Annotation
The family of this 133-nucleotide RNA from Carnegiea gigantea is "Small nucleolar RNA snoR138". NCBI's taxonomy places the organism under Eukaryota, Streptophyta, Streptophytina, Euphyllophyta, Carnegiea. It scores 48 bits against the family's covariance model. The literature on the family includes a 2009 paper in Nucleic Acids Res by Chen and Wu, "Mining small RNA sequencing data: a new approach to identify small nucleolar RNAs in Arabidopsis".
[Rfam]
RNA sequence: AAUGCCUCUGAAAAACCGAAUGGUGGUUUGCAAAGCUGUUUGGUUUAGACAGAGGCUCCCAAACUGAAAUGAUUUGAGGGUAAGGAAUGCUUUCUUGCUUCUUCAUUCCUUUCCUAGUUAGUUUCGGAUGUCU
Numbered sequence: 001a002a003u004g005c006c007u008c009u010g011a012a013a014a015a016c017c018g019a020a021u022g023g024u025g026g027u028u029u030g031c032a033a034a035g036c037u038g039u040u041u042g043g044u045u046u047a048g049a050c051a052g053a054g055g056c057u058c059c060c061a062a063a064c065u066g067a068a069a070u071g072a073u074u075u076g077a078g079g080g081u082a083a084g085g086a087a088u089g090c091u092u093u094c095u096u097g098c099u100u101c102u103u104c105a106u107u108c109c110u111u112u113c114c115u116a117g118u119u120a121g122u123u124u125c126g127g128a129u130g131u132c133u
Stems, first nucleotide, its partner, number of pairs: 004056005014045008023036002065126006072106002076101003080098001083095005